Rfam assigns this 54-nucleotide sequence from Sparus aurata to the family "UnaL2 LINE 3' element".
It scores 60 bits against the family's covariance model.
Taxonomically the source falls in Sparus (Eukaryota, Gnathostomata, Teleostomi, Euteleosteomorpha).
The family's consensus secondary structure is taken from published work.
Rfam classes the family as a cis-regulatory element.
Rfam describes the family as follows. The eel long interspersed element (LINE) UnaL2 and its partner short interspersed element (SINE) share a conserved 3' tail containing a stem-loop that is critical for their retrotransposition. Presumably, the first step of retrotransposition is the recognition of their 3' tails by UnaL2-encoded reverse transcriptase. The solution structure of a 17-nucleotide RNA derived from the 3' tail of UnaL2 was determined by NMR.
[Rfam]
RNA sequence: GCCAAAUGUAUUUGUAAGUCGCUUUGGAUAAAAGCGUCUGCUAAAUGUAAAUCA
Numbered sequence: 001g002c003c004a005a006a007u008g009u010a011u012u013u014g015u016a017a018g019u020c021g022c023u024u025u026g027g028a029u030a031a032a033a034g035c036g037u038c039u040g041c042u043a044a045a046u047g048u049a050a051a052u053c054a
Stems, first nucleotide, its partner, number of pairs: 013043001014041003020036006